[Rfam]
RNA sequence: AUGCCCUAAACUUAUGAGUAAGGAAAAUAAUGAUUUGGGGUGACACCUGAAUCCUCACUGCUAAUGUGAGACAAAGUUUUGAGCAGGUAAAGAUUGCCCCCAGGGUGACCCGCCUACCUUGUGGGAUGCCUGGGAGGCUCGAUCUGCCUG
Number, nucleotide and partner (000 for none) at each position: 001a000002u000003g000004c023005c022006c000007u020008a019009a000010a000011c000012u000013u000014a000015u000016g000017a000018g000019u008020a007021a000022g005023g004024a000025a000026a000027a000028u000029a000030a000031u000032g053033a052034u051035u050036u049037g048038g047039g046040g000041u000042g000043a000044c000045a000046c039047c038048u037049g036050a035051a034052u033053c032054c070055u069056c068057a067058c066059u000060g000061c000062u000063a000064a000065u000066g058067u057068g056069a055070g054071a000072c000073a000074a000075a000076g000077u000078u000079u000080u000081g000082a000083g000084c150085a149086g148087g147088u146089a000090a000091a145092g144093a143094u142095u141096g140097c000098c000099c000100c134101c133102a000103g131104g130105g129106u128107g127108a000109c125110c124111c123112g122113c121114c000115u000116a000117c000118c000119u000120u000121g113122u112123g111124g110125g109126a000127u107128g106129c105130c104131u103132g000133g101134g100135a000136g000137g000138c000139u000140c096141g095142a094143u093144c092145u091146g088147c087148c086149u085150g084